[Rfam]
RNA: mir-425 microRNA precursor family
Organism: Xenopus laevis
RNA sequence: ACUUAGCCUUGGAAUGACACGAUCACUCCCGUUGAGCCGAAACACAUAGCGCCAUCGGGAAUAUCGUGUCGCUCCAAAGCUCUCU
Numbered sequence: 001a002c003u004u005a006g007c008c009u010u011g012g013a014a015u016g017a018c019a020c021g022a023u024c025a026c027u028c029c030c031g032u033u034g035a036g037c038c039g040a041a042a043c044a045c046a047u048a049g050c051g052c053c054a055u056c057g058g059g060a061a062u063a064u065c066g067u068g069u070c071g072c073u074c075c076a077a078a079g080c081u082c083u084c085u
Stems, first nucleotide, its partner, number of pairs: 006080002009077004016070008027060005033054002036052002